[Rfam]
RNA: Small nucleolar RNA SNORD115
Organism: Loxodonta africana
RNA sequence: GGGUCAAUGAUGACAUAACCUGUCUCGAAGAGAGAUGAUGACCUCAAAAUCGUGCUCAGUGGGUUUAUGCUGAGGCCC
Numbered sequence: 001g002g003g004u005c006a007a008u009g010a011u012g013a014c015a016u017a018a019c020c021u022g023u024c025u026c027g028a029a030g031a032g033a034g035a036u037g038a039u040g041a042c043c044u045c046a047a048a049a050u051c052g053u054g055c056u057c058a059g060u061g062g063g064u065u066u067a068u069g070c071u072g073a074g075g076c077c078c
Base pairs, nucleotide, nucleotide: 001078002077003076004075005072006071008069009068